RNA sequence: GAUGGAUUUGAUCCAAUCCAUUAAUCAAUUUUUUUACUUAUGGAUGGAUUGGAUGGAUCCAUUG
Numbered sequence: 001g002a003u004g005g006a007u008u009u010g011a012u013c014c015a016a017u018c019c020a021u022u023a024a025u026c027a028a029u030u031u032u033u034u035u036a037c038u039u040a041u042g043g044a045u046g047g048a049u050u051g052g053a054u055g056g057a058u059c060c061a062u063u064g
Base pairs, nucleotide, nucleotide: 004060005059006058007057008056011054012053013052014051015050016049017048018047019046020045021044022043027038029036

Annotation
Rfam assigns this 64-nucleotide RNA sequence from Trifolium medium to the family "MIR5291 microRNA precursor family". The family has 3 seed sequences and 168 matches in Rfam 15.1. NCBI's taxonomy places the organism under Eukaryota, Viridiplantae, Streptophyta, Streptophytina, Trifolium. The base pairs follow the family's consensus structure, which was predicted with RNAalifold.